Rfam assigns this 194-nucleotide RNA sequence from Halostreptopolyspora alba to the family "Actinobacteria sRNA Ms_IGR-5". A reference for the family is Li et al. (2013), "Identification of small RNAs in Mycobacterium smegmatis using heterologous Hfq", RNA. A search with the family's covariance model found it, with a score of 74 bits. By type it is a small RNA. The organism belongs to Halostreptopolyspora, within Bacteria.
[Rfam]
RNA sequence: ACGCAGGAAAGGAGGUGGUCCUAACAGUGAAUGCUUUGAGGACGUGCGAGGUGUCCGUCCGUUAGGGCGACUCCACACAACCGGAUCGCACUAGCGAAUCCACAUCGGGCACCCAGAUCCCCGGGUCGGCCGGAACUUGUCCAUCCGGCCCCCGACACCACGUGUCGGGAGCCAUGCCCGGGGGUCCGUCAUGU
Number, nucleotide and partner (000 for none) at each position: 001a000002c000003g000004c000005a000006g000007g000008a000009a000010a000011g000012g000013a000014g059015g058016u057017g056018g055019u000020c000021c000022u000023a000024a000025c000026a000027g000028u000029g000030a000031a000032u000033g000034c000035u000036u000037u000038g000039a000040g000041g000042a000043c000044g000045u000046g000047c000048g000049a000050g000051g000052u000053g000054u000055c018056c017057g016058u015059c014060c096061g095062u094063u093064a092065g091066g000067g089068c088069g087070a086071c000072u000073c084074c083075a000076c000077a000078c000079a000080a000081c000082c000083g074084g073085a000086u070087c069088g068089c067090a000091c065092u064093a063094g062095c061096g060097a000098a000099u000100c000101c000102a000103c000104a000105u000106c000107g000108g000109g000110c000111a000112c000113c000114c188115a000116g186117a185118u184119c183120c182121c181122c180123g179124g178125g177126u176127c000128g000129g149130c148131c147132g146133g145134a144135a000136c000137u000138u000139g000140u000141c000142c000143a000144u134145c133146c132147g131148g130149c129150c000151c000152c000153c000154g000155a000156c000157a000158c000159c000160a000161c000162g000163u000164g000165u000166c000167g000168g000169g000170a000171g000172c000173c000174a000175u000176g126177c125178c124179c123180g122181g121182g120183g119184g118185u117186c116187c000188g114189u000190c000191a000192u000193g000194u000